A member of the RNA family "Bacterial RNase P class A" from Chlorobium phaeovibrioides, 406 nucleotides long. Gene Ontology terms of the family: dimeric ribonuclease P complex, ribonuclease P activity and tRNA processing. The family's consensus secondary structure is taken from published work. NCBI's taxonomy places the organism under Bacteria, Chlorobiota, Chlorobiia, Chlorobium, Chlorobium phaeovibrioides.
RNA sequence: AAACCGCAAGUGUGCAGUCGCUGCAGGGCCAAUGGCCCUGCAGAGGAAAGUCCGAACUUCACAGGGCAGGGUGCCGGUCGAGAGCGCCGAAAGGUUCUCAAGCCCGGGCAGGUCGGCGCAAGCCGGUCCUGACAGAGAGCGCAGCAGAAAGCAGACCGCUCCGGGAAACCGGAGUAAGGGUGAAACGGCGGUGUAAGAGACCACCAGGCAUUCCGGUAACGGAGUGCGCUAUGCAAACCUCCCCGAAGCAAGGCCGAAUAGGAAAGCUUUUCCCCAAAGGGAAAGAGGGCGGCCCGCCCGAUUCCGCAAGGAGAGUUUUCGGGUAGGCCGCAUCAGAUAAAUGACUGCAGUUUCUUCCGGCACGCCGGUUGAUUCACAGAAUUCGGCUUACAUCUUCGGUUUCGGC
Numbered sequence: 001a002a003a004c005c006g007c008a009a010g011u012g013u014g015c016a017g018u019c020g021c022u023g024c025a026g027g028g029c030c031a032a033u034g035g036c037c038c039u040g041c042a043g044a045g046g047a048a049a050g051u052c053c054g055a056a057c058u059u060c061a062c063a064g065g066g067c068a069g070g071g072u073g074c075c076g077g078u079c080g081a082g083a084g085c086g087c088c089g090a091a092a093g094g095u096u097c098u099c100a101a102g103c104c105c106g107g108g109c110a111g112g113u114c115g116g117c118g119c120a121a122g123c124c125g126g127u128c129c130u131g132a133c134a135g136a137g138a139g140c141g142c143a144g145c146a147g148a149a150a151g152c153a154g155a156c157c158g159c160u161c162c163g164g165g166a167a168a169c170c171g172g173a174g175u176a177a178g179g180g181u182g183a184a185a186c187g188g189c190g191g192u193g194u195a196a197g198a199g200a201c202c203a204c205c206a207g208g209c210a211u212u213c214c215g216g217u218a219a220c221g222g223a224g225u226g227c228g229c230u231a232u233g234c235a236a237a238c239c240u241c242c243c244c245g246a247a248g249c250a251a252g253g254c255c256g257a258a259u260a261g262g263a264a265a266g267c268u269u270u271u272c273c274c275c276a277a278a279g280g281g282a283a284a285g286a287g288g289g290c291g292g293c294c295c296g297c298c299c300g301a302u303u304c305c306g307c308a309a310g311g312a313g314a315g316u317u318u319u320c321g322g323g324u325a326g327g328c329c330g331c332a333u334c335a336g337a338u339a340a341a342u343g344a345c346u347g348c349a350g351u352u353u354c355u356u357c358c359g360g361c362a363c364g365c366c367g368g369u370u371g372a373u374u375c376a377c378a379g380a381a382u383u384c385g386g387c388u389u390a391c392a393u394c395u396u397c398g399g400u401u402u403c404g405g406c
Stems, first nucleotide, its partner, number of pairs: 001402006008396003012391001013349007021043009048389003052386005057248004066307002069244003073241001074107004108133001109131004134240002139238001141234003156179002158175007187205002190202003207229001208227008252329004262320006302313004